[Rfam]
RNA sequence: AGCUCAUUUCAAAGAGGGCUUGUGGAACUGAGACCAAGAGCUCUUAAGGCUGUGACCAAAGAUUGAGAUUUGCCAUAGAAUGCCACAGUCACUCCCUAGUGCUGUUUUCUCCUGUGGAGAUACAAGA
Numbered sequence: 001a002g003c004u005c006a007u008u009u010c011a012a013a014g015a016g017g018g019c020u021u022g023u024g025g026a027a028c029u030g031a032g033a034c035c036a037a038g039a040g041c042u043c044u045u046a047a048g049g050c051u052g053u054g055a056c057c058a059a060a061g062a063u064u065g066a067g068a069u070u071u072g073c074c075a076u077a078g079a080a081u082g083c084c085a086c087a088g089u090c091a092c093u094c095c096c097u098a099g100u101g102c103u104g105u106u107u108u109c110u111c112c113u114g115u116g117g118a119g120a121u122a123c124a125a126g127a
Base pairs, nucleotide, nucleotide: 002057004055005054006053007052014045015044016043017042018041019040020039021038023037024035025034070120071119073117074116077113078112080110085105086104087103088102090101091100092099093098

About this RNA
This 127-nucleotide RNA sequence from Echinops telfairi belongs to the Rfam family "Small nucleolar RNA SNORA25". Rfam links the family to the GO terms nucleolus and RNA processing. From the family's description: ACA25 is a member of the H/ACA class of snoRNA that guide the sites of modification of uridines to pseudouridines. Lineage of the source: Eukaryota > Metazoa > Gnathostomata > Theria > Echinops. The family's consensus secondary structure was predicted with RNAfold. The sequence is in the family's curated seed alignment.